[Rfam]
RNA: miR-430 microRNA precursor family
Organism: Betta splendens
RNA sequence: CGGAUCACCUCAAACAGAGCCACUUGUGAUUUUUCUGUUCAUAAGUGCUUCUCUUUGGGGUUGUCUUA
Numbered sequence: 001c002g003g004a005u006c007a008c009c010u011c012a013a014a015c016a017g018a019g020c021c022a023c024u025u026g027u028g029a030u031u032u033u034u035c036u037g038u039u040c041a042u043a044a045g046u047g048c049u050u051c052u053c054u055u056u057g058g059g060g061u062u063g064u065c066u067u068a
Stems, first nucleotide, its partner, number of pairs: 004064002007061005014055001016052004021047004026042003